[Rfam]
Description:
The family of this 81-nucleotide sequence from Turnera subulata is "Small nucleolar RNA J33". Its family is annotated with nucleolus and RNA processing in the Gene Ontology. By type it is a C/D-box small nucleolar RNA. It scores 82 bits against the family's covariance model.
Nucleotides: 081
Stems, first nucleotide, its partner, number of pairs: 001081006
Number, partner (000 for none) and nucleotide at each position: 001081c002080u003079g004078u005077a006076a007000g008000g009000g010000g011000a012000a013000u014000g015000a016000u017000g018000u019000a020000u021000u022000a023000c024000u025000a026000c027000c028000g029000u030000g031000c032000a033000c034000u035000a036000a037000a038000g039000a040000u041000g042000c043000u044000g045000g046000c047000u048000g049000c050000a051000c052000u053000u054000g055000a056000u057000u058000c059000g060000g061000c062000u063000u064000c065000a066000g067000a068000g069000a070000u071000g072000g073000a074000u075000a076006u077005u078004a079003u080002g081001g